[Rfam]
RNA sequence: AUGCCUUAAACUGAUGAGUAAGGAAAAUAACGACGCGGGGUAACGCCUGUGUGCUCGCCAACUUGCGAGAACAAUUUUUAAAAGGGCACAGGUCCGUCUGUUAGGUGACUCGCCUACUUUGUGAGAUGCCUUACAGGUAGUAGAUCUGCCCU
Dot-bracket structure: ...(((((..........))))).........(((((((......))))))).(((((......))))).............(((((..(((((.(...((.(((((.(((((.......))))).))))).))......).))))))))))